Background: This 135-nucleotide RNA sequence from Cricetulus griseus belongs to the Rfam family "Small nucleolar RNA SNORA40". A search with the family's covariance model found it, with a score of 63 bits. About the family: The snoRNA ACA 40 belongs to the H/ACA family of snoRNAs and guides the pseudouridylation of 28S rRNA subunit at position U4565. NB This family has a high threshold value to exclude a large number of closely related sequences that do not appear to have conserved H and ACA boxes, and may be pseudogenes. On this family, see Ofengand and Bakin, J Mol Biol 1997: "Mapping to nucleotide resolution of pseudouridine residues in large subunit ribosomal RNAs from representative eukaryotes, prokaryotes, archaebacteria, mitochondria and chloroplasts".

RNA sequence: AGCAUUUGUGUGCAUCUUUGUUCAACUGAUAGGUAAAGGAAUGAAAGACGGAUGCAAAAAAAAAAAAAUCAAUCUUCUUUUGCAACCCAGAGCUCAUUGUUUCGUGUAGUUUUGAAACGUAGAAGAAGGAAUAUG
Dot-bracket structure: .((((((((.(...(((((((...........)))))))......).))))))))................((.((.((((......(((((((.((........)))))))))........)))).)).))...

The base pairs follow the family's consensus structure, which was predicted with RNAalifold.